[Rfam]
A member of the RNA family "MIR1435 microRNA precursor family" from Oryza brachyantha, 197 nucleotides long. It scores 112 bits against the family's covariance model. The family's consensus secondary structure was predicted with RNAalifold. NCBI's taxonomy places the organism under Eukaryota, Streptophyta, Poales, Oryzinae, Oryza.

RNA sequence: UAGCUUUUGUUCUAAGUCAAACUUCUCAAAUUUUGACCAAGUUUAUAGGGAAAUACAUCAACAUGUACAAAAACAAAUAAAUGCACUAUCAACACUCACAAUAGAUUUAACGAAACUAAUUUGAUAUUGUAGAUGUUGAUGCAUUUUUCUAUAAACUCGGUCAAAGUUGGAGAAGCUUGACUUAUGACAAAACCUAA
Dot-bracket structure: ....(((((.(.((((((((.((((((....(((((.........((((((((..(((.(((((.((((....(((((........................................)))))....)))).))))).)))..)))))))).........)))))....)))))).)))))))).).))))).....
Numbered sequence: 001u002a003g004c005u006u007u008u009g010u011u012c013u014a015a016g017u018c019a020a021a022c023u024u025c026u027c028a029a030a031u032u033u034u035g036a037c038c039a040a041g042u043u044u045a046u047a048g049g050g051a052a053a054u055a056c057a058u059c060a061a062c063a064u065g066u067a068c069a070a071a072a073a074c075a076a077a078u079a080a081a082u083g084c085a086c087u088a089u090c091a092a093c094a095c096u097c098a099c100a101a102u103a104g105a106u107u108u109a110a111c112g113a114a115a116c117u118a119a120u121u122u123g124a125u126a127u128u129g130u131a132g133a134u135g136u137u138g139a140u141g142c143a144u145u146u147u148u149c150u151a152u153a154a155a156c157u158c159g160g161u162c163a164a165a166g167u168u169g170g171a172g173a174a175g176c177u178u179g180a181c182u183u184a185u186g187a188c189a190a191a192a193c194c195u196a197a
Stems, first nucleotide, its partner, number of pairs: 005192005011186001013184008022175006032165005046151008056141003060137005066131004074123005